[Rfam]
This 112-nucleotide RNA sequence from Hydrogenibacillus schlegelii belongs to the Rfam family "TPP riboswitch aptamer (THI element)". It scores 62 bits against the family's covariance model. The family's consensus secondary structure is taken from published work. NCBI's taxonomy places the organism under Bacteria, Bacillati, Bacilli, Thermicanales, Hydrogenibacillus. About the family: Vitamin B(1) in its active form thiamin pyrophosphate (TPP) is an essential coenzyme that is synthesised by coupling of pyrimidine and thiazole moieties in bacteria.

RNA sequence: CCCGGGCCGCGCGGGAGCCGGGGCAGCCGGCUGAGAGUGCAGCCAGAGGCGCUGCAGACCGCCUGAACCUGAUCCGGUUCGGACCGGCGGAGGGAGCGGCGUUCGGGAAUCC
Numbered sequence: 001c002c003c004g005g006g007c008c009g010c011g012c013g014g015g016a017g018c019c020g021g022g023g024c025a026g027c028c029g030g031c032u033g034a035g036a037g038u039g040c041a042g043c044c045a046g047a048g049g050c051g052c053u054g055c056a057g058a059c060c061g062c063c064u065g066a067a068c069c070u071g072a073u074c075c076g077g078u079u080c081g082g083a084c085c086g087g088c089g090g091a092g093g094g095a096g097c098g099g100c101g102u103u104c105g106g107g108a109a110u111c112c
Stems, first nucleotide, its partner, number of pairs: 006100005011062004017031005038056005068093003074087004